Rfam assigns this 83-nucleotide RNA from Pan troglodytes to the family "mir-548 microRNA precursor family". Pairs were carried over by alignment from the consensus structure, which was predicted with WAR. Rfam links the family to the GO terms RISC complex and miRNA-mediated post-transcriptional gene silencing. On this family, see Witten et al., BMC Biol 2010: "Ultra-high throughput sequencing-based small RNA discovery and discrete statistical biomarker analysis in a collection of cervical tumours and matched controls".
RNA sequence: UACUAGGUUGGUGCAAAAGUAGUUGCGGUUUUUGCCAUUGGAAGUAAUGGCAAAAACCGCAUCUACUUUUGCACCAACCUAUA
Numbered sequence: 001u002a003c004u005a006g007g008u009u010g011g012u013g014c015a016a017a018a019g020u021a022g023u024u025g026c027g028g029u030u031u032u033u034g035c036c037a038u039u040g041g042a043a044g045u046a047a048u049g050g051c052a053a054a055a056a057c058c059g060c061a062u063c064u065a066c067u068u069u070u071g072c073a074c075c076a077a078c079c080u081a082u083a
Base pairs, nucleotide, nucleotide: 004081005080006079007078008077009076010075011074012073013072014071015070016069017068018067019066020065021064022063024061025060026059027058028057029056030055031054032053033052034051035050036049037048038047039046040045